[Rfam]
RNA sequence: AGCUGGAAGGGAAAAGCCUGAAGUCCAGAGUUGGAUUAAGGAAAAACCCUAACAGCCCC
Numbered sequence: 001a002g003c004u005g006g007a008a009g010g011g012a013a014a015a016g017c018c019u020g021a022a023g024u025c026c027a028g029a030g031u032u033g034g035a036u037u038a039a040g041g042a043a044a045a046a047c048c049c050u051a052a053c054a055g056c057c058c059c
Stems, first nucleotide, its partner, number of pairs: 002056004008050004017041003023036005
The record is a 59-nucleotide RNA from Orthopestivirus ovis, which matches "Pestivirus 3' UTR SLI" in Rfam. A reference for the family is Deng and Brock (1993), "5' and 3' untranslated regions of pestivirus genome: primary and secondary structure analyses", Nucleic Acids Res. The base pairs follow the family's consensus structure. Rfam's curators put it in the seed alignment. Rfam classes the family as a cis-regulatory element. Lineage of the source: Viruses > Kitrinoviricota > Flasuviricetes > Amarillovirales > Orthopestivirus ovis.